Rfam assigns this 102-nucleotide sequence from Caloramator sp. E03 to the family "Purine riboswitch aptamer". Lineage of the source: Bacteria > Bacillota > Clostridia > Eubacteriales > Caloramator.
RNA sequence: AUAACAAUUGUUUUUAUUGCUCAUAUAAAUCUGAUAAUAGGGAUCAGAUGUUUCUACCAGGCAACCGUAAAUUGCCUGACUAUGGGCGAAUUUAUUCAUAGA
Numbered sequence: 001a002u003a004a005c006a007a008u009u010g011u012u013u014u015u016a017u018u019g020c021u022c023a024u025a026u027a028a029a030u031c032u033g034a035u036a037a038u039a040g041g042g043a044u045c046a047g048a049u050g051u052u053u054c055u056a057c058c059a060g061g062c063a064a065c066c067g068u069a070a071a072u073u074g075c076c077u078g079a080c081u082a083u084g085g086g087c088g089a090a091u092u093u094a095u096u097c098a099u100a101g102a
Base pairs, nucleotide, nucleotide: 018088019087020086021085022084023083024082025081029049030048031047032046033045034044035043058078059077060076061075062074063073064072
Dot-bracket structure: .................((((((((...(((((((.......)))))))........(((((((.......)))))))..))))))))..............